[Rfam]
RNA: mir-2756 microRNA precursor family
RNA sequence: UCAGUAGCAUACAAUGUAGCAGCCGAGGGGCGGAAUUAAGCUGCGCCCCUUGGCAGCUACAGGGUGUGCAACUGAUU
Numbered sequence: 001u002c003a004g005u006a007g008c009a010u011a012c013a014a015u016g017u018a019g020c021a022g023c024c025g026a027g028g029g030g031c032g033g034a035a036u037u038a039a040g041c042u043g044c045g046c047c048c049c050u051u052g053g054c055a056g057c058u059a060c061a062g063g064g065u066g067u068g069c070a071a072c073u074g075a076u077u
Stems, first nucleotide, its partner, number of pairs: 001075005007069006015061006022054003026050007034042001